A member of the RNA family "FMN riboswitch aptamer (RFN element)" from Shewanella cyperi, 210 nucleotides long. The source organism's lineage runs through Bacteria, Pseudomonadota, Gammaproteobacteria, Alteromonadales and Shewanella. Its family is annotated with FMN binding in the Gene Ontology.

RNA sequence: GCAUAUUCUCAGGGCGGGGUGUAAUUCCCCACCGGCGGUAAAUUCUCAACAGAGAAAAGCCCGCGAGCGCCCGUGGCUUGCCACGGGGUCAGCAGAUCUGGUGUCCCUGUCAUGGCUCUUAACCAUUGUUGUUAACUGCCGCGACAGCUAAUCCAGAGCCGACGGUGUUGUCAGUCAUUUCUGACUCAGUCCGGAUGAAAGAGAAUGGUC
Number, nucleotide and partner (000 for none) at each position: 001g000002c000003a000004u207005a206006u205007u204008c203009u202010c201011a000012g000013g000014g000015c000016g000017g029018g028019g027020u000021g000022u000023a000024a000025u000026u000027c019028c018029c017030c000031a000032c000033c161034g160035g064036c063037g062038g061039u000040a000041a000042a000043u000044u000045c000046u000047c000048a000049a000050c000051a000052g000053a000054g000055a000056a000057a000058a000059g159060c158061c038062c037063g036064c035065g000066a000067g093068c092069g000070c000071c000072c000073g000074u000075g000076g000077c000078u000079u000080g000081c000082c000083a000084c000085g000086g000087g000088g000089u000090c000091a000092g068093c067094a000095g000096a000097u157098c156099u155100g154101g153102u000103g000104u000105c000106c000107c000108u000109g000110u000111c000112a000113u000114g000115g000116c000117u000118c000119u000120u000121a000122a000123c000124c000125a000126u000127u000128g000129u000130u000131g000132u000133u000134a000135a000136c000137u000138g000139c000140c000141g000142c000143g000144a000145c000146a000147g000148c000149u000150a000151a000152u000153c101154c100155a099156g098157a097158g060159c059160c034161g033162a000163c193164g192165g191166u000167g000168u000169u000170g000171u000172c000173a000174g000175u000176c000177a000178u000179u000180u000181c000182u000183g000184a000185c000186u000187c000188a000189g000190u000191c165192c164193g163194g000195a000196u000197g000198a000199a000200a000201g010202a009203g008204a007205a006206u005207g004208g000209u000210c000